[Rfam]
RNA sequence: GUUUUCGGAUAAUCGCAGUAUCGCUUCGGUGAUGUUGAGGAAAGUCCAUGCUCGCACAGGCUGAGAUGCGUGUAGUGAUCGUGCUUAACGAAACAAUAAGUUAAGGUACCUUGUAGAAGGUAACGGCAGACAAAAGAGCUAAAGCGCGUGCGUCAUGCUCAAGUAGUCUUGAAAAGUGCCACAGUGACGAAGUAAUUUUAGAAAUAAAAUUAGUGGAACGGGUAAACCCCUCGAGCGAGCAACCCAAACUUAUGGUAGGGGCACCUUUCUCAGGGAAAUGAACUUAUGAGAAGGGACAGAGUAUUCUGUAGACAGAUGGUUAUCCUUGUUAUUUUUCCUGAAAGAAAUAACAAGACAGAACAUGGCUUACAGAA
Numbered sequence: 001g002u003u004u005u006c007g008g009a010u011a012a013u014c015g016c017a018g019u020a021u022c023g024c025u026u027c028g029g030u031g032a033u034g035u036u037g038a039g040g041a042a043a044g045u046c047c048a049u050g051c052u053c054g055c056a057c058a059g060g061c062u063g064a065g066a067u068g069c070g071u072g073u074a075g076u077g078a079u080c081g082u083g084c085u086u087a088a089c090g091a092a093a094c095a096a097u098a099a100g101u102u103a104a105g106g107u108a109c110c111u112u113g114u115a116g117a118a119g120g121u122a123a124c125g126g127c128a129g130a131c132a133a134a135a136g137a138g139c140u141a142a143a144g145c146g147c148g149u150g151c152g153u154c155a156u157g158c159u160c161a162a163g164u165a166g167u168c169u170u171g172a173a174a175a176g177u178g179c180c181a182c183a184g185u186g187a188c189g190a191a192g193u194a195a196u197u198u199u200a201g202a203a204a205u206a207a208a209a210u211u212a213g214u215g216g217a218a219c220g221g222g223u224a225a226a227c228c229c230c231u232c233g234a235g236c237g238a239g240c241a242a243c244c245c246a247a248a249c250u251u252a253u254g255g256u257a258g259g260g261g262c263a264c265c266u267u268u269c270u271c272a273g274g275g276a277a278a279u280g281a282a283c284u285u286a287u288g289a290g291a292a293g294g295g296a297c298a299g300a301g302u303a304u305u306c307u308g309u310a311g312a313c314a315g316a317u318g319g320u321u322a323u324c325c326u327u328g329u330u331a332u333u334u335u336u337c338c339u340g341a342a343a344g345a346a347a348u349a350a351c352a353a354g355a356c357a358g359a360a361c362a363u364g365g366c367u368u369a370c371a372g373a374a
Base pairs, nucleotide, nucleotide: 004374005373006372007370008324009323010322011321012320013319014318016037017036018035019034020033021032042368043367044366046365047364048363049362050361051239052238053237054236055235056073057072058071060069061068079234080233081232083230084105085104086103087102088101089100106124107122108121109120110119111118112117125229126228128169129168130167131166136160137159138158139157144153145152176227177226178223179222180221193212194211195210196209197208198207199206200205243260244259245258264295265294266293267292268291269290270289296309297308298307299306300305326353327352328351329350330349331348332347333346334345335344336343